[Rfam]
RNA sequence: CACAGUUCACUAAACUAUGAAUGGCAAGAUUGAAAUUGUUUGUUAUCUGUUUGAUCGAACAAAAGUGCAGCAAUGGCGUAAGACGCAAUGUUUAAUCAAACAAUUUAUGGGCUGCGAGUUGCAGCUUACUGGAUUGGGUAAAAUCUGUACCGAUUUAUUACAGAAUUCCCCAAUAAAGAGUGCUGUAUUUAAAUGAAAUUCAGACUCGCCGACAAAAUAGGCGCCUCUAUACAAACGAUAGCCGUGAGGCUGACGGCUUUGUAAAAGACACGAGGCCAUCGGUAACCAGUAGCUCAUCUCUCUUUUACUCGUAGCUCUAUACCAA
Numbered sequence: 001c002a003c004a005g006u007u008c009a010c011u012a013a014a015c016u017a018u019g020a021a022u023g024g025c026a027a028g029a030u031u032g033a034a035a036u037u038g039u040u041u042g043u044u045a046u047c048u049g050u051u052u053g054a055u056c057g058a059a060c061a062a063a064a065g066u067g068c069a070g071c072a073a074u075g076g077c078g079u080a081a082g083a084c085g086c087a088a089u090g091u092u093u094a095a096u097c098a099a100a101c102a103a104u105u106u107a108u109g110g111g112c113u114g115c116g117a118g119u120u121g122c123a124g125c126u127u128a129c130u131g132g133a134u135u136g137g138g139u140a141a142a143a144u145c146u147g148u149a150c151c152g153a154u155u156u157a158u159u160a161c162a163g164a165a166u167u168c169c170c171c172a173a174u175a176a177a178g179a180g181u182g183c184u185g186u187a188u189u190u191a192a193a194u195g196a197a198a199u200u201c202a203g204a205c206u207c208g209c210c211g212a213c214a215a216a217a218u219a220g221g222c223g224c225c226u227c228u229a230u231a232c233a234a235a236c237g238a239u240a241g242c243c244g245u246g247a248g249g250c251u252g253a254c255g256g257c258u259u260u261g262u263a264a265a266a267g268a269c270a271c272g273a274g275g276c277c278a279u280c281g282g283u284a285a286c287c288a289g290u291a292g293c294u295c296a297u298c299u300c301u302c303u304u305u306u307a308c309u310c311g312u313a314g315c316u317c318u319a320u321a322c323c324a325a
Stems, first nucleotide, its partner, number of pairs: 004036001006034003015024003048102007058092004065086003070077002109317011127291006135172004144164005179206003183203003188198003208283005223276005236255002239252005
The record is a 325-nucleotide RNA from Xenorhabdus koppenhoeferi, which matches "RNase E 5' UTR element" in Rfam. Pairs were carried over by alignment from the consensus structure, which is taken from published work. The source organism's lineage runs through Bacteria, Pseudomonadota, Gammaproteobacteria, Morganellaceae and Xenorhabdus. This family represents a conserved element found in the 5' UTR of RNase E mRNA. RNase E is a key regulatory enzyme in the pathway of mRNA degradation in E. coli that is able to auto-regulate the degradation of its own mRNA in response to changes in RNase E activity. This rne 5' UTR element acts as a sensor of cellular RNase E concentration enabling tight regulation of RNase E concentration and synthesis.